[Rfam]
RNA: Purine riboswitch aptamer
RNA sequence: GAAGACAAAUAAAUACAAUCUAAUAUAAUCUAAGCGAUAUGGGCUUUAAGUUUCUACCGGACACCGUAAAACGUUCGACUAUUAGUGAGAUGAGUUUUUUG
Numbered sequence: 001g002a003a004g005a006c007a008a009a010u011a012a013a014u015a016c017a018a019u020c021u022a023a024u025a026u027a028a029u030c031u032a033a034g035c036g037a038u039a040u041g042g043g044c045u046u047u048a049a050g051u052u053u054c055u056a057c058c059g060g061a062c063a064c065c066g067u068a069a070a071a072c073g074u075u076c077g078a079c080u081a082u083u084a085g086u087g088a089g090a091u092g093a094g095u096u097u098u099u100u101g
Stems, first nucleotide, its partner, number of pairs: 020085006029049001032046004058077005